[Rfam]
RNA sequence: CAGCUGGGAGAGAGAGGCAGGGUCUGAUCUGCAGCCUUUGUGGCAGCUGUUGAUCAGCCGUUGUCUCUCUCUCUCCAGGCU
Numbered sequence: 001c002a003g004c005u006g007g008g009a010g011a012g013a014g015a016g017g018c019a020g021g022g023u024c025u026g027a028u029c030u031g032c033a034g035c036c037u038u039u040g041u042g043g044c045a046g047c048u049g050u051u052g053a054u055c056a057g058c059c060g061u062u063g064u065c066u067c068u069c070u071c072u073c074u075c076c077a078g079g080c081u
Stems, first nucleotide, its partner, number of pairs: 008073013022059001024057006032049004
RNA: mir-574 microRNA precursor family
Organism: Myotis myotis